[Rfam]
RNA: Bacterial small signal recognition particle RNA
RNA sequence: UGUUGGUUCCCUCGCAAUGAUAGUUCGUGAACCUGGUCAGGACCGGAAGGUAGCAGCCACAGCGGAUGACUCAUGUGCCGAGGUGUCGCUGGCAAGG
Number, nucleotide and partner (000 for none) at each position: 001u000002g000003u000004u091005g090006g089007u088008u000009c000010c083011c082012u081013c080014g079015c075016a000017a074018u073019g072020a071021u000022a000023g067024u066025u065026c064027g063028u062029g000030a000031a000032c000033c000034u059035g058036g057037u056038c000039a000040g000041g000042a051043c050044c049045g000046g000047a000048a000049g044050g043051u042052a000053g000054c000055a000056g037057c036058c035059a034060c000061a000062g028063c027064g026065g025066a024067u023068g000069a000070c000071u020072c019073a018074u017075g015076u000077g000078c000079c014080g013081a012082g011083g010084u000085g000086u000087c000088g007089c006090u005091g004092g000093c000094a000095a000096g000097g000